[Rfam]
RNA sequence: CAAAAGGGGGGGCCCCCCCCCAAAAAAACCCCCCGGGGAAAAAAAAUUUGGGGGGUUUUUUGGGUUUUUUUUGGGGGCCCCUUUAAAAUUUUUUUAAUUUUGGGGGGGGGGGGGUUUUUUUUUCCCUUUUGGCCCCCCCCCCCCC
Numbered sequence: 001c002a003a004a005a006g007g008g009g010g011g012g013c014c015c016c017c018c019c020c021c022a023a024a025a026a027a028a029c030c031c032c033c034c035g036g037g038g039a040a041a042a043a044a045a046a047u048u049u050g051g052g053g054g055g056u057u058u059u060u061u062g063g064g065u066u067u068u069u070u071u072u073g074g075g076g077g078c079c080c081c082u083u084u085a086a087a088a089u090u091u092u093u094u095u096a097a098u099u100u101u102g103g104g105g106g107g108g109g110g111g112g113g114g115u116u117u118u119u120u121u122u123u124c125c126c127u128u129u130u131g132g133c134c135c136c137c138c139c140c141c142c143c144c145c
Stems, first nucleotide, its partner, number of pairs: 008020005021073008030064003074079001102143004107139005113134004